[Rfam]
RNA: Small nucleolar RNA SNORD35
Organism: Cnephaeus nilssonii
RNA sequence: GGCAGAUGAUGGCUUUUUCUCAUGAUGGUCUGUGGGUGCCACUGUGGGCAGUGCCGAGAAUGGCAAUGGCUUAGCUGAUGCUGGGAG
Dot-bracket structure: ((((..........................................................................)))).....